Shown here is a 368-nucleotide RNA sequence from Pediococcus claussenii, a member of the family "Bacterial RNase P class B".
A search with the family's covariance model found it, with a score of 324 bits.
Nucleotides: 368
Base pairs, nucleotide, nucleotide: 004368005367006366007364008318009317010316011315012314013313014312016036017035018034019033020032021031041362042361043360045359046358047357048356049355050234051233052232053231054230055072056071057070058069059068060067078229079228080227082225083104084103085102086101087100088099105121106119107118108117109116122224123223125164126163127162128161133155134154135153136152140149141148142147171222172221173218174217175216187206188205189204190203191202192201193200194199238254239253240252258288259287260286261285262284263283264282290302291301292300293299294298321346322345325342326341327340328339329338330337331336
Number, partner (000 for none) and nucleotide at each position: 001000a002000a003000u004368u005367u006366c007364g008318g009317g010316u011315a012314a013313u014312u015000g016036c017035g018034g019033u020032c021031a022000g023000c024000u025000c026000u027000a028000u029000g030000c031021u032020g033019a034018c035017u036016g037000a038000g039000g040000a041362a042361a043360g044000u045359c046358c047357a048356u049355g050234c051233u052232c053231g054230c055072a056071c057070a058069a059068g060067c061000u062000g063000a064000g065000a066000u067060g068059c069058u070057u071056g072055u073000a074000g075000u076000g077000u078229u079228c080227g081000u082225g083104c084103c085102u086101g087100g088099c089000g090000a091000a092000a093000a094000a095000a096000u097000a098000a099088g100087c101086u102085g103084g104083g105121g106119u107118a108117c109116c110000u111000u112000a113000a114000u115000u116109g117108g118107u119106a120000a121105c122224g123223g124000c125164g126163a127162a128161u129000g130000a131000a132000c133155a134154a135153a136152c137000u138000a139000a140149g141148g142147u143000u144000u145000c146000g147142a148141c149140u150000a151000a152136g153135u154134u155133u156000a157000a158000g159000u160000a161128a162127u163126u164125c165000u166000g167000a168000a169000a170000a171222g172221u173218g174217c175216c176000a177000c178000a179000g180000a181000a182000a183000c184000g185000a186000g187206u188205u189204g190203a191202u192201u193200a194199a195000g196000a197000a198000a199194u200193u201192a202191a203190u204189c205188a206187a207000a208000u209000g210000g211000a212000a213000c214000g215000c216175g217174g218173u219000a220000a221172a222171c223123c224122c225082c226000u227080c228079g229078a230054g231053c232052g233051g234050g235000c236000a237000a238254c239253c240252c241000a242000a243000a244000c245000u246000a247000u248000g249000g250000u251000a252240g253239g254238g255000g256000a257000g258288c259287u260286u261285c262284a263283c264282a265000u266000g267000c268000g269000g270000a271000a272000a273000u274000g275000a276000a277000c278000u279000g280000a281000a282264u283263g284262u285261g286260g287259g288258g289000g290302c291301a292300g293299a294298c295000a296000u297000u298294g299293u300292c301291u302290g303000g304000a305000g306000a307000u308000a309000g310000a311000u312014g313013a314012u315011u316010a317009c318008c319000c320000a321346a322345a323000u324000u325342u326341a327340a328339a329338u330337u331336u332000c333000c334000u335000g336331a337330a338329a339328u340327u341326u342325a343000u344000u345322u346321u347000g348000g349000a350000c351000a352000a353000a354000a355049c356048a357047u358046g359045g360043c361042u362041u363000a364007c365000a366006g367005a368004a